A member of the RNA family "transfer-messenger RNA" from Shewanella pealeana, 356 nucleotides long.
Rfam's curators write: Bacterial tmRNA, also known as 10Sa RNA or SsrA, is named for its dual tRNA and mRNA-like properties.
Lineage of the source: Bacteria > Pseudomonadati > Alteromonadales > Shewanellaceae > Shewanella pealeana.
Rfam classes the family as a non-coding RNA gene.
For this family Rfam cites "Phylogenetic analysis of tmRNA secondary structure" (Williams and Bartel, RNA, 1996).
RNA sequence: GGGGGCGAUUCUGGAUUCGACAAGAUUCUCGAAACCCUGGGAGCAUGCCGAGGGGCGGUUGGCCUCGUAAAAAGCCGCACCGUUAUAGUUGCAAACGACUCUAACUACUCUCUAGCAGCUUAGGCUAGCUAGCCAUCUUGCUCACGUUUAUCAAAUGGGCAGAGUAAUAAGAUGGUCACCUUUACAUUUGAUAGCGAGGGAACCACGUUCAGGGGUGAACCGCGAAACAGUACUGAACUCGCCAAUUGCAAUCCUGUCUUUCGGAGUGUACUUGGUUAACCAAAAGAGAGACUAAGCAUGUAGCGCCUUGGAUGUAGGCUUUUUGGACGCGGGUUCGAGCCCCGCCGCCUCCACCA
Numbered sequence: 001g002g003g004g005g006c007g008a009u010u011c012u013g014g015a016u017u018c019g020a021c022a023a024g025a026u027u028c029u030c031g032a033a034a035c036c037c038u039g040g041g042a043g044c045a046u047g048c049c050g051a052g053g054g055g056c057g058g059u060u061g062g063c064c065u066c067g068u069a070a071a072a073a074g075c076c077g078c079a080c081c082g083u084u085a086u087a088g089u090u091g092c093a094a095a096c097g098a099c100u101c102u103a104a105c106u107a108c109u110c111u112c113u114a115g116c117a118g119c120u121u122a123g124g125c126u127a128g129c130u131a132g133c134c135a136u137c138u139u140g141c142u143c144a145c146g147u148u149u150a151u152c153a154a155a156u157g158g159g160c161a162g163a164g165u166a167a168u169a170a171g172a173u174g175g176u177c178a179c180c181u182u183u184a185c186a187u188u189u190g191a192u193a194g195c196g197a198g199g200g201a202a203c204c205a206c207g208u209u210c211a212g213g214g215g216u217g218a219a220c221c222g223c224g225a226a227a228c229a230g231u232a233c234u235g236a237a238c239u240c241g242c243c244a245a246u247u248g249c250a251a252u253c254c255u256g257u258c259u260u261u262c263g264g265a266g267u268g269u270a271c272u273u274g275g276u277u278a279a280c281c282a283a284a285a286g287a288g289a290g291a292c293u294a295a296g297c298a299u300g301u302a303g304c305g306c307c308u309u310g311g312a313u314g315u316a317g318g319c320u321u322u323u324u325g326g327a328c329g330c331g332g333g334u335u336c337g338a339g340c341c342c343c344g345c346c347g348c349c350u351c352c353a354c355c356a
Stems, first nucleotide, its partner, number of pairs: 001352007021325005028318002034313001036311002039308003043304001044300005049067005055078006111132001117126003133175006140165004146160003151191006194223003207239001209237001212234001241276005247270004252265003256292007329345005